Overview
This 56-nucleotide RNA sequence from Lysinibacillus telephonicus belongs to the Rfam family "Bacillaceae-1 RNA". The family's consensus secondary structure is taken from published work. The source organism's lineage runs through Bacteria, Bacillati, Caryophanales, Bacillaceae and Lysinibacillus. It is annotated as a small RNA.

[Rfam]
RNA sequence: CGUCGGCAAGAGCGCCCCGUCCUGUGGCAUCGCCGACAUGACUCACAUCGUGUGAG
Numbered sequence: 001c002g003u004c005g006g007c008a009a010g011a012g013c014g015c016c017c018c019g020u021c022c023u024g025u026g027g028c029a030u031c032g033c034c035g036a037c038a039u040g041a042c043u044c045a046c047a048u049c050g051u052g053u054g055a056g
Stems, first nucleotide, its partner, number of pairs: 002037006014028003018024001042056005
Dot-bracket structure: .((((((......(((.(.....).)))...))))))....(((((.....)))))